[Rfam]
The family of this 76-nucleotide RNA sequence from Clostridium polyendosporum is "S10-Clostridia ribosomal protein leader". For this family Rfam cites "Discovery of 20 novel ribosomal leader candidates in bacteria and archaea" (Eckert and Weinberg, BMC Microbiol, 2020). It is annotated as a cis-regulatory leader.

RNA sequence: AAACAGUGAUGAAUCAAGAGGUUGCCGGACUUCCGGGUAAUUCUUGAUGAGCAUGUCUGGAUCUUGAAUCCGACGA
Numbered sequence: 001a002a003a004c005a006g007u008g009a010u011g012a013a014u015c016a017a018g019a020g021g022u023u024g025c026c027g028g029a030c031u032u033c034c035g036g037g038u039a040a041u042u043c044u045u046g047a048u049g050a051g052c053a054u055g056u057c058u059g060g061a062u063c064u065u066g067a068a069u070c071c072g073a074c075g076a
Stems, first nucleotide, its partner, number of pairs: 014047003018043003025036004054075004059071004